[Rfam]
RNA sequence: UGGUGUUUUUCUUUAAUGACACGUUUUCUCCCGGAUUGCAAACAAUGGAAAACGCAACCGGGAAUCUCGUGUCAGCCACGAAAAGCACCU
Numbered sequence: 001u002g003g004u005g006u007u008u009u010u011c012u013u014u015a016a017u018g019a020c021a022c023g024u025u026u027u028c029u030c031c032c033g034g035a036u037u038g039c040a041a042a043c044a045a046u047g048g049a050a051a052a053c054g055c056a057a058c059c060g061g062g063a064a065u066c067u068c069g070u071g072u073c074a075g076c077c078a079c080g081a082a083a084a085g086c087a088c089c090u
Base pairs, nucleotide, nucleotide: 002089003088004087005086006085007084008083009082010081011080017074018073019072020071021070022069023068029063030062031061032060033059034058036057037056038055039054
The family of this 90-nucleotide RNA sequence from Sphaeramia orbicularis is "mir-731 microRNA precursor family". Lineage of the source: Eukaryota > Deuterostomia > Chordata > Euteleostomi > Sphaeramia. Gene Ontology terms of the family: RISC complex and miRNA-mediated post-transcriptional gene silencing. Pairs were carried over by alignment from the consensus structure, which was predicted with RNAalifold. A search with the family's covariance model found it, with a score of 86 bits.